[Rfam]
RNA sequence: UUUGAAGCGAGUCUUCUGGCUUCGAUAGGUUCUCGCCGCAGUGAUACGAGCAAUUCCAACUGCAAUAUCACCGGGUGAAAAUCUAUCGAAGCCGGAGAGGAGCCC
Numbered sequence: 001u002u003u004g005a006a007g008c009g010a011g012u013c014u015u016c017u018g019g020c021u022u023c024g025a026u027a028g029g030u031u032c033u034c035g036c037c038g039c040a041g042u043g044a045u046a047c048g049a050g051c052a053a054u055u056c057c058a059a060c061u062g063c064a065a066u067a068u069c070a071c072c073g074g075g076u077g078a079a080a081a082u083c084u085a086u087c088g089a090a091g092c093c094g095g096a097g098a099g100g101a102g103c104c105c
Stems, first nucleotide, its partner, number of pairs: 016095007024087008033078005039073001041071006
RNA: mir-36 microRNA precursor family